The record is a 112-nucleotide RNA from Hoeflea prorocentri, which matches "Guanidine-I riboswitch aptamer" in Rfam. Its family is annotated with regulation of gene expression in the Gene Ontology. The family has 100 seed sequences and 1,509 matches in Rfam 15.1. On this family, see Nelson et al., Mol Cell 2017: "Metabolism of Free Guanidine in Bacteria Is Regulated by a Widespread Riboswitch Class". It scores 76 bits against the family's covariance model.

[Rfam]
RNA sequence: GUGCAGCGCCCCUAGGGUUCCGGUUCCGUCCUCAAGGCGGGAUGCUGGUCCAAGAGGGGCAAGCCGGCAGAGCAAAUAGCCGGUGACACGGCGGGAAAAAAACCCGGGAGAC
Numbered sequence: 001g002u003g004c005a006g007c008g009c010c011c012c013u014a015g016g017g018u019u020c021c022g023g024u025u026c027c028g029u030c031c032u033c034a035a036g037g038c039g040g041g042a043u044g045c046u047g048g049u050c051c052a053a054g055a056g057g058g059g060c061a062a063g064c065c066g067g068c069a070g071a072g073c074a075a076a077u078a079g080c081c082g083g084u085g086a087c088a089c090g091g092c093g094g095g096a097a098a099a100a101a102a103c104c105c106g107g108g109a110g111a112c
Base pairs, nucleotide, nucleotide: 008060009059010058011057012056015051016050020048021047022045023043024042025041026040027039028038029037030036063084064083065082066081067080068079087107089110093105094104095103